[Rfam]
The family of this 367-nucleotide RNA sequence from Vibrio sp. 99-8-1 is "transfer-messenger RNA".
By type it is a non-coding RNA gene.
Lineage of the source: Bacteria > Pseudomonadati > Gammaproteobacteria > Vibrionaceae > Vibrio.

RNA sequence: GGGGCUGAUCCAGGAUUCGACGGGAAUUUUGCAGUCUGAGGUGCAUGCCGUGGGGCGGUUGGCCACGUAAAAAGCCGCAAAAAAAUAGUCGCAAACGACGAAAACUACGCACUAGCAGCUUAAUAACCUGCUGAGAGCUCUCCUGCCCUAGCUUCCGCUUGUAAGACGGGGAAUAACAGGGGAUCAAACCCAAACUAGCUAGAUCGGAUUCUCCCGCCUGAGAGAUGAAGUUCGAAAUUUAAUUCAGGAUAGUCAUCUACUAGCGUGUCGGUUCGCAGGUAUUUGGUGAAUGUAAAGAUCGACUAAGCAUGUAGUACCAAUGAUGAAUGAUUUUCGGACGCGGGUUCAACUCCCGCCAGCUCCACCA
Numbered sequence: 001g002g003g004g005c006u007g008a009u010c011c012a013g014g015a016u017u018c019g020a021c022g023g024g025a026a027u028u029u030u031g032c033a034g035u036c037u038g039a040g041g042u043g044c045a046u047g048c049c050g051u052g053g054g055g056c057g058g059u060u061g062g063c064c065a066c067g068u069a070a071a072a073a074g075c076c077g078c079a080a081a082a083a084a085a086u087a088g089u090c091g092c093a094a095a096c097g098a099c100g101a102a103a104a105c106u107a108c109g110c111a112c113u114a115g116c117a118g119c120u121u122a123a124u125a126a127c128c129u130g131c132u133g134a135g136a137g138c139u140c141u142c143c144u145g146c147c148c149u150a151g152c153u154u155c156c157g158c159u160u161g162u163a164a165g166a167c168g169g170g171g172a173a174u175a176a177c178a179g180g181g182g183a184u185c186a187a188a189c190c191c192a193a194a195c196u197a198g199c200u201a202g203a204u205c206g207g208a209u210u211c212u213c214c215c216g217c218c219u220g221a222g223a224g225a226u227g228a229a230g231u232u233c234g235a236a237a238u239u240u241a242a243u244u245c246a247g248g249a250u251a252g253u254c255a256u257c258u259a260c261u262a263g264c265g266u267g268u269c270g271g272u273u274c275g276c277a278g279g280u281a282u283u284u285g286g287u288g289a290a291u292g293u294a295a296a297g298a299u300c301g302a303c304u305a306a307g308c309a310u311g312u313a314g315u316a317c318c319a320a321u322g323a324u325g326a327a328u329g330a331u332u333u334u335c336g337g338a339c340g341c342g343g344g345u346u347c348a349a350c351u352c353c354c355g356c357c358a359g360c361u362c363c364a365c366c367a
Base pairs, nucleotide, nucleotide: 001363002362003361004360005359006358007357021336022335023334024333025332026331027330028329030327034324035323036322040318041317042316044311045310046309047308048307049067050066051065052064053063055078056077057076058075059074060073112135113134115131116130117129118128139183140182141181142180143179144178146171147170148169149168152165153164154163157199158198159197161195162194204235205234206233207232208231209230210229212227216250218248219247252287253286254285255284258281259280260279261278263276264275265274267303268302269301270300271299272298273297340356341355342354343353344352